[Rfam]
RNA sequence: CGUCGGUCCCCUCGCAACGCGAGACCGUGAACCCGGUCAGGCCCGGAAGGGAGCAGCCGCAGCGGUUGAAGCGUGUGCCGGGGUGUGGCUGGCGUGG
Dot-bracket structure: ...(((((.((((((.((((..((((((.....((((....(((....)))....))))..))))))...)))))...)))))...)))))......
Numbered sequence: 001c002g003u004c005g006g007u008c009c010c011c012u013c014g015c016a017a018c019g020c021g022a023g024a025c026c027g028u029g030a031a032c033c034c035g036g037u038c039a040g041g042c043c044c045g046g047a048a049g050g051g052a053g054c055a056g057c058c059g060c061a062g063c064g065g066u067u068g069a070a071g072c073g074u075g076u077g078c079c080g081g082g083g084u085g086u087g088g089c090u091g092g093c094g095u096g097g
Stems, first nucleotide, its partner, number of pairs: 004091005010083005015075001017074004023067006034059004042051003
The record is a 97-nucleotide RNA from Thiocystis violascens, which matches "Bacterial small signal recognition particle RNA" in Rfam. Rfam classes the family as a non-coding RNA gene. NCBI's taxonomy places the organism under Bacteria, Chromatiales, Chromatiaceae, Thiocystis, Thiocystis violascens. Rfam links the family to the GO terms SRP-dependent cotranslational protein targeting to membrane, signal sequence recognition and signal recognition particle, plasma membrane targeting. The base pairs follow the family's consensus structure, which is taken from published work.